[Rfam]
RNA sequence: AGUCAUAUGCUUGUCUCAAAGAUUAAGCCAUGCAUGUCUAAGUAUAAACAAAUUCAUACUGUGAAACUGCGAAUGGCUCAUUAAAUCAGUUAUAGUUUAUUUGAUGGUAUCUUGCUACAUGGAUAACUGUGGUAAUUCUAGAGCUAAUACAUGCUGAAAAGCCCCGACUUCUGGAAGGGGUGUAUUUAUUAGAUAAAAAACCAAUGGGUGCAAGCCCUCUAUGGUGAAUCAUGAUAACUUCUCGAAUCGCAUGGCCUUGUGCCGGCGAUGCUUCAUUCAAAUAUCUGCCCUAUCAACUUUCGAUGGUAGGAUAGAGGCCUACCAUGGUAUCAACGGGUAACGGGGAAUUAGGGUUCGAUUCCGGAGAGGGAGCCUGAGAAACGGCUACCACAUCCAAGGAAGGCAGCAGGCGCGCAAAUUACCCAAUCCCGACACGGGGAGGUAGUGACAAUAAAUAACAAUACAGGGCUCUAUUGGGUCUUGUAAUUGGAAUGAGUACAAUUUAAAUCCCUUAACGAGGAACCACUGGAGGGCAAGUCUGGUGCCAGCAGCCGCGGUAAUUCCAGCUCCAGUAGCGUAUAUUAAAGUUGUUG
Numbered sequence: 001a002g003u004c005a006u007a008u009g010c011u012u013g014u015c016u017c018a019a020a021g022a023u024u025a026a027g028c029c030a031u032g033c034a035u036g037u038c039u040a041a042g043u044a045u046a047a048a049c050a051a052a053u054u055c056a057u058a059c060u061g062u063g064a065a066a067c068u069g070c071g072a073a074u075g076g077c078u079c080a081u082u083a084a085a086u087c088a089g090u091u092a093u094a095g096u097u098u099a100u101u102u103g104a105u106g107g108u109a110u111c112u113u114g115c116u117a118c119a120u121g122g123a124u125a126a127c128u129g130u131g132g133u134a135a136u137u138c139u140a141g142a143g144c145u146a147a148u149a150c151a152u153g154c155u156g157a158a159a160a161g162c163c164c165c166g167a168c169u170u171c172u173g174g175a176a177g178g179g180g181u182g183u184a185u186u187u188a189u190u191a192g193a194u195a196a197a198a199a200a201c202c203a204a205u206g207g208g209u210g211c212a213a214g215c216c217c218u219c220u221a222u223g224g225u226g227a228a229u230c231a232u233g234a235u236a237a238c239u240u241c242u243c244g245a246a247u248c249g250c251a252u253g254g255c256c257u258u259g260u261g262c263c264g265g266c267g268a269u270g271c272u273u274c275a276u277u278c279a280a281a282u283a284u285c286u287g288c289c290c291u292a293u294c295a296a297c298u299u300u301c302g303a304u305g306g307u308a309g310g311a312u313a314g315a316g317g318c319c320u321a322c323c324a325u326g327g328u329a330u331c332a333a334c335g336g337g338u339a340a341c342g343g344g345g346a347a348u349u350a351g352g353g354u355u356c357g358a359u360u361c362c363g364g365a366g367a368g369g370g371a372g373c374c375u376g377a378g379a380a381a382c383g384g385c386u387a388c389c390a391c392a393u394c395c396a397a398g399g400a401a402g403g404c405a406g407c408a409g410g411c412g413c414g415c416a417a418a419u420u421a422c423c424c425a426a427u428c429c430c431g432a433c434a435c436g437g438g439g440a441g442g443u444a445g446u447g448a449c450a451a452u453a454a455a456u457a458a459c460a461a462u463a464c465a466g467g468g469c470u471c472u473a474u475u476g477g478g479u480c481u482u483g484u485a486a487u488u489g490g491a492a493u494g495a496g497u498a499c500a501a502u503u504u505a506a507a508u509c510c511c512u513u514a515a516c517g518a519g520g521a522a523c524c525a526c527u528g529g530a531g532g533g534c535a536a537g538u539c540u541g542g543u544g545c546c547a548g549c550a551g552c553c554g555c556g557g558u559a560a561u562u563c564c565a566g567c568u569c570c571a572g573u574a575g576c577g578u579a580u581a582u583u584a585a586a587g588u589u590g591u592u593g
Stems, first nucleotide, its partner, number of pairs: 001583003005580007014453001016451001020446001021413001027411003031408003036070002041068003048062002077366003087287003092282002096280002102275003118153004127143002130140003161181005168174002186237006200225004207216003247268004252264004289337003296328003303325008341363004345356004368389002371386003391402001393400002419444001421443003427439005459489003462485010496516002498513001500512001526572006539566004548555002